[Rfam]
RNA sequence: UCCAGUGGUAGUCAGCUGUCCAGAGCAAUACUAUGCCUGUGAUAGUGUUACACUGCUGGGAGAUGAAGAUCAGUCAUUUCUUCUGGCUGCUGCUGUCACCAAUCUGGAGGCAGCUGAUGCCAAAAAGAAGUGUCAUUGUGCUUCCCUGAGAGCGCACUGAAGAUUUCCCUUCCCUCUUUAGUGCUAGUCUGGGAGCAUACAUA
Numbered sequence: 001u002c003c004a005g006u007g008g009u010a011g012u013c014a015g016c017u018g019u020c021c022a023g024a025g026c027a028a029u030a031c032u033a034u035g036c037c038u039g040u041g042a043u044a045g046u047g048u049u050a051c052a053c054u055g056c057u058g059g060g061a062g063a064u065g066a067a068g069a070u071c072a073g074u075c076a077u078u079u080c081u082u083c084u085g086g087c088u089g090c091u092g093c094u095g096u097c098a099c100c101a102a103u104c105u106g107g108a109g110g111c112a113g114c115u116g117a118u119g120c121c122a123a124a125a126a127g128a129a130g131u132g133u134c135a136u137u138g139u140g141c142u143u144c145c146c147u148g149a150g151a152g153c154g155c156a157c158u159g160a161a162g163a164u165u166u167c168c169c170u171u172c173c174c175u176c177u178u179u180a181g182u183g184c185u186a187g188u189c190u191g192g193g194a195g196c197a198u199a200c201a202u203a
Base pairs, nucleotide, nucleotide: 001060002059003058004057005056006055007054008053009052011051012050015046016045017044018043019042020041021039022038023037068136073134075132076131082129084127087119090116092114094112095111096110097109099107100106138198139197140196141195142194143193144192145191154184155183156182158180159179160178161177162176163175

Shown here is a 203-nucleotide RNA from Calyptomena viridis, a member of the family "Small nucleolar RNA SNORA74". From the family's description: U19 belongs to the H/ACA class of snoRNAs. snoRNAs bind a number of proteins (including dyskerin, Gar1p and Nop10p in the case of the H/ACA class) to form snoRNP complexes. A search with the family's covariance model found it, with a score of 98 bits. The organism belongs to Calyptomena, within Eukaryota.